[Rfam]
Nucleotides: 133
Base pairs, nucleotide, nucleotide: 011118012117013116014115018034019033020032021031022030035113036112037111038110039109040108045052046051053098054097055096061074062073063072064071077092078091079090080089
Number, partner (000 for none) and nucleotide at each position: 001000c002000u003000g004000a005000g006000c007000c008000a009000u010000u011118g012117g013116c014115c015000u016000a017000g018034u019033u020032u021031g022030g023000u024000c025000u026000g027000u028000g029000a030022c031021c032020a033019a034018a035113g036112c037111g038110g039109a040108g041000g042000a043000c044000c045052c046051a047000u048000c049000u050000u051046u052045g053098g054097g055096g056000c057000a058000a059000a060000c061074c062073u063072u064071g065000c066000a067000g068000c069000u070000g071064c072063a073062a074061g075000g076000a077092g078091g079090c080089g081000a082000a083000c084000u085000c086000u087000c088000a089080c090079g091078c092077c093000u094000a095000g096055c097054c098053c099000g100000u101000c102000a103000g104000c105000u106000a107000a108040c109039u110038u111037c112036g113035u114000c115014g116013g117012c118011c119000u120000u121000g122000g123000g124000a125000g126000g127000a128000g129000a130000u131000g132000c133000a
c-di-AMP riboswitch aptamer (ydaO/yuaA leader): a 133-nucleotide RNA from Leptolyngbya iicbica.
NCBI's taxonomy places the organism under Bacteria, Bacillati, Cyanophyceae, Leptolyngbyales, Leptolyngbya iicbica.